[Rfam]
RNA sequence: AAUGCUGCCAUUACUGUUAACACAUACAGCUGCUGCUGCAGUGCUGGGCUGUACCUGUGUCUUUAGGUAGCAAAGAGGAAGUGGCUUUUUCUACGCUCAGUGUUCAGAAAUCUGUGAGCACUAAGAAUGGUUGAUUGCCUGACAUUU
Numbered sequence: 001a002a003u004g005c006u007g008c009c010a011u012u013a014c015u016g017u018u019a020a021c022a023c024a025u026a027c028a029g030c031u032g033c034u035g036c037u038g039c040a041g042u043g044c045u046g047g048g049c050u051g052u053a054c055c056u057g058u059g060u061c062u063u064u065a066g067g068u069a070g071c072a073a074a075g076a077g078g079a080a081g082u083g084g085c086u087u088u089u090u091c092u093a094c095g096c097u098c099a100g101u102g103u104u105c106a107g108a109a110a111u112c113u114g115u116g117a118g119c120a121c122u123a124a125g126a127a128u129g130g131u132u133g134a135u136u137g138c139c140u141g142a143c144a145u146u147u
Stems, first nucleotide, its partner, number of pairs: 003072007026058004083139003091130003096125002101120006